[Rfam]
RNA: L31-Gammaproteobacteria ribosomal protein leader
Organism: Zophobihabitans entericus
RNA sequence: CGUAUGGUGUACAACCAAAGUGGCUUGUAUAGCGAUACGUACAAAACCGAGGU
Number, nucleotide and partner (000 for none) at each position: 001c039002g038003u037004a036005u035006g000007g033008u032009g000010u000011a028012c027013a026014a025015c023016c000017a000018a000019a000020g000021u000022g000023g015024c000025u014026u013027g012028u011029a000030u000031a000032g008033c007034g000035a005036u004037a003038c002039g001040u000041a000042c000043a000044a000045a000046a000047c000048c000049g000050a000051g000052g000053u000